[Rfam]
RNA: Purine riboswitch aptamer
RNA sequence: ACUUAAUGAAAGUUUUUUGAAUGUAUAUGCUUAGGAAUAUGGCUUAAGCGUCUCUACCUGGUAACCGUAAACUACCGGACUACAUGAAAGAAUGAUUGGAAA
Numbered sequence: 001a002c003u004u005a006a007u008g009a010a011a012g013u014u015u016u017u018u019g020a021a022u023g024u025a026u027a028u029g030c031u032u033a034g035g036a037a038u039a040u041g042g043c044u045u046a047a048g049c050g051u052c053u054c055u056a057c058c059u060g061g062u063a064a065c066c067g068u069a070a071a072c073u074a075c076c077g078g079a080c081u082a083c084a085u086g087a088a089a090g091a092a093u094g095a096u097u098g099g100a101a102a
Stems, first nucleotide, its partner, number of pairs: 018088001021085005029049007058078006